This 110-nucleotide sequence from Guptibacillus hwajinpoensis belongs to the Rfam family "SAM riboswitch aptamer (S box leader)". Taxonomically the source falls in Guptibacillus (Bacteria, Bacillati, Bacillota, Caryophanales). About the family: The SAM riboswitch is found upstream of a number of genes which code for proteins involved in methionine or cysteine biosynthesis in Gram-positive bacteria.
RNA sequence: UUCUUAUCAAGAGAGGUGGAGGGACUGGCCCUUUGAAGCCUCGGCAACGGAUGUGAUGAUCGAUCACGAACUGUGCCAAAUCCAGCAGGUGCAUACCUGAAAGAUGAGAA
Dot-bracket structure: ((((((((....(((((...(((.[[[[)))......)))))((((.((..(((((.......)))))...))))))...(]]]](((((....)))))..)))))))))